[Rfam]
RNA sequence: CUUCACCGAGCCCAGCAGCAGCGGCUGGCCUUCGGCGCGGCCCUGGCCGUAGGUGGCCAGCACGGCCUGGGCCUC
Numbered sequence: 001c002u003u004c005a006c007c008g009a010g011c012c013c014a015g016c017a018g019c020a021g022c023g024g025c026u027g028g029c030c031u032u033c034g035g036c037g038c039g040g041c042c043c044u045g046g047c048c049g050u051a052g053g054u055g056g057c058c059a060g061c062a063c064g065g066c067c068u069g070g071g072c073c074u075c
Stems, first nucleotide, its partner, number of pairs: 014026003031071003038065001043060003047056003